[Rfam]
RNA: Streptomyces RNA 5676
RNA sequence: AGUUGAGAGAAACACCCCGCCCACAGGGGACUGUGGGCGACACCAUGGUGGAGCUUCCCCGGCCCCGCCCUGGUCGUGCCCUCGCGCACACACCCGGAGCUUCAGGUUCCGGAACUCCUCACCGAUCGGA
Numbered sequence: 001a002g003u004u005g006a007g008a009g010a011a012a013c014a015c016c017c018c019g020c021c022c023a024c025a026g027g028g029g030a031c032u033g034u035g036g037g038c039g040a041c042a043c044c045a046u047g048g049u050g051g052a053g054c055u056u057c058c059c060c061g062g063c064c065c066c067g068c069c070c071u072g073g074u075c076g077u078g079c080c081c082u083c084g085c086g087c088a089c090a091c092a093c094c095c096g097g098a099g100c101u102u103c104a105g106g107u108u109c110c111g112g113a114a115c116u117c118c119u120c121a122c123c124g125a126u127c128g129g130a
Stems, first nucleotide, its partner, number of pairs: 004121004009117002018039009042074004047069001049067003053063002076089004094112007122129002